[Rfam]
RNA sequence: AAAAAGGGCGUUUGGUUUUUGCCACGUUCUCAGUCCCGGACGCGUUCUGAGGAUGCAGAAUCGCCAUCAAGAGAUUCUGAGCGCGUAAUUUUUGUACUGGGCUGCCGGUGAUGGCGAAAGCCUCUGGCGCCCGU
Numbered sequence: 001a002a003a004a005a006g007g008g009c010g011u012u013u014g015g016u017u018u019u020u021g022c023c024a025c026g027u028u029c030u031c032a033g034u035c036c037c038g039g040a041c042g043c044g045u046u047c048u049g050a051g052g053a054u055g056c057a058g059a060a061u062c063g064c065c066a067u068c069a070a071g072a073g074a075u076u077c078u079g080a081g082c083g084c085g086u087a088a089u090u091u092u093u094g095u096a097c098u099g100g101g102c103u104g105c106c107g108g109u110g111a112u113g114g115c116g117a118a119a120g121c122c123u124c125u126g127g128c129g130c131c132c133g134u
Stems, first nucleotide, its partner, number of pairs: 008084005013024004025055009036044001056079007099132004104128005110123001
This 134-nucleotide sequence from Tropilaelaps mercedesae belongs to the Rfam family "U11 spliceosomal RNA". It is annotated as a spliceosomal small nuclear RNA. The base pairs follow the family's consensus structure, which is taken from published work. The organism belongs to Tropilaelaps, within Eukaryota.